[Rfam]
RNA sequence: UAUAUCGCCAGGGGGUGCUUCGGUAAAACCGAGGCUGAGAGCAUACCCCUAGUACUUGAUCCAGGUAAUGCUGGCGGAGGAAUUGGCGAGCAAGAGAAGU
Numbered sequence: 001u002a003u004a005u006c007g008c009c010a011g012g013g014g015g016u017g018c019u020u021c022g023g024u025a026a027a028a029c030c031g032a033g034g035c036u037g038a039g040a041g042c043a044u045a046c047c048c049c050u051a052g053u054a055c056u057u058g059a060u061c062c063a064g065g066u067a068a069u070g071c072u073g074g075c076g077g078a079g080g081a082a083u084u085g086g087c088g089a090g091c092a093a094g095a096g097a098a099g100u
Base pairs, nucleotide, nucleotide: 006088007087008086009085010084011049012048013047014046016043017035018034019033020032021031022030023029055080056079057078061074062073063072064071
The family of this 100-nucleotide RNA from Acetomicrobium mobile is "TPP riboswitch aptamer (THI element)". A search with the family's covariance model found it, with a score of 67 bits.